[Rfam]
RNA sequence: CUCUUAUCAAGAGCAGGCUGAGGGAUAUGGCCCUAUGACGCCCAGCAACCGACCGCAAUAUGUGGAGAAAGAAUCCGCAAGGCACGGUGCUAAUUCCAUCAGAAAGAAUUCUUUCUGAAAGAUAAGAG
Numbered sequence: 001c002u003c004u005u006a007u008c009a010a011g012a013g014c015a016g017g018c019u020g021a022g023g024g025a026u027a028u029g030g031c032c033c034u035a036u037g038a039c040g041c042c043c044a045g046c047a048a049c050c051g052a053c054c055g056c057a058a059u060a061u062g063u064g065g066a067g068a069a070a071g072a073a074u075c076c077g078c079a080a081g082g083c084a085c086g087g088u089g090c091u092a093a094u095u096c097c098a099u100c101a102g103a104a105a106g107a108a109u110u111c112u113u114u115c116u117g118a119a120a121g122a123u124a125a126g127a128g
Stems, first nucleotide, its partner, number of pairs: 001128008013043001016042003022033003027099004044091004049087002051083001053081001095120001100117006
RNA: SAM riboswitch aptamer (S box leader)
Organism: Peribacillus asahii